RNA: Purine riboswitch aptamer
Organism: Staphylococcus sp. HGB0015
RNA sequence: CAGUAGAUAAUUUAUCAAGCUCAUAUAAUCUGAAGAAUACGGCUUUAGAAGUUUCUACCAUGUUGCCUUAAACGACAUGACUAUGAGUAAUGGUACAUCGAUG
Numbered sequence: 001c002a003g004u005a006g007a008u009a010a011u012u013u014a015u016c017a018a019g020c021u022c023a024u025a026u027a028a029u030c031u032g033a034a035g036a037a038u039a040c041g042g043c044u045u046u047a048g049a050a051g052u053u054u055c056u057a058c059c060a061u062g063u064u065g066c067c068u069u070a071a072a073c074g075a076c077a078u079g080a081c082u083a084u085g086a087g088u089a090a091u092g093g094u095a096c097a098u099c100g101a102u103g
Stems, first nucleotide, its partner, number of pairs: 019088007029049007059079007
Dot-bracket structure: ..................(((((((...(((((((.......))))))).........(((((((.......)))))))..)))))))...............